Shown here is a 97-nucleotide RNA sequence from Lysobacter enzymogenes, a member of the family "Bacterial small signal recognition particle RNA".

RNA sequence: CGUUGGCGCCUCCGCGACGAUAGAUCGAAAAUCCCGCCAGGGCCGGAAGGCAGCAACGGUAUCGGUUGAUUCGGGCGCCGGAGUCACGCUUGCGGGG
Number, nucleotide and partner (000 for none) at each position: 001c000002g000003u000004u000005g090006g089007c088008g087009c000010c083011u082012c081013c080014g079015c075016g000017a000018c073019g072020a071021u000022a000023g067024a066025u065026c064027g063028a062029a000030a000031a000032u000033c000034c059035c058036g057037c000038c000039a000040g000041g000042g051043c050044c049045g000046g000047a000048a000049g044050g043051c042052a000053g000054c000055a000056a000057c036058g035059g034060u000061a000062u028063c027064g026065g025066u024067u023068g000069a000070u000071u020072c019073g018074g000075g015076c000077g000078c000079c014080g013081g012082a011083g010084u000085c000086a000087c008088g007089c006090u005091u000092g000093c000094g000095g000096g000097g000
The family's consensus secondary structure is taken from published work.
The literature on the family includes a 2002 paper in Nucleic Acids Res by Regalia et al., "Prediction of signal recognition particle RNA genes".
A search with the family's covariance model found it, with a score of 62 bits.
Rfam describes the family as follows. The signal recognition particle (SRP) is a universally conserved ribonucleoprotein involved in the co-translational targeting of proteins to membranes.
The source organism's lineage runs through Bacteria, Pseudomonadati, Gammaproteobacteria, Lysobacteraceae and Lysobacter.
Rfam classes the family as a non-coding RNA gene.